About this RNA:
The record is an 81-nucleotide sequence from Sporomusa silvacetica, which matches "NiCo (Nickel/Cobalt) riboswitch aptamer" in Rfam. Pairs were carried over by alignment from the consensus structure, which is taken from published work. Its Rfam clan is "NiCo_riboswitches". The source organism's lineage runs through Bacteria, Bacillati, Bacillota, Sporomusaceae and Sporomusa silvacetica. On this family, see Furukawa et al., Mol Cell 2015: "Bacterial riboswitches cooperatively bind Ni(2+) or Co(2+) ions and control expression of heavy metal transporters". Rfam links the family to the GO terms cobalt ion binding and metal ion homeostasis.

RNA sequence: UAAUAAGCAUAGGAUCAGGCAGUCGGCUAUUGCCGACGUAGCCGGGCAAGUUAAGCAGCAGGUUAGGCCUGCGGGACCUAU
Numbered sequence: 001u002a003a004u005a006a007g008c009a010u011a012g013g014a015u016c017a018g019g020c021a022g023u024c025g026g027c028u029a030u031u032g033c034c035g036a037c038g039u040a041g042c043c044g045g046g047c048a049a050g051u052u053a054a055g056c057a058g059c060a061g062g063u064u065a066g067g068c069c070u071g072c073g074g075g076a077c078c079u080a081u
Stems, first nucleotide, its partner, number of pairs: 010080004016075001018043003022037006046056002058072006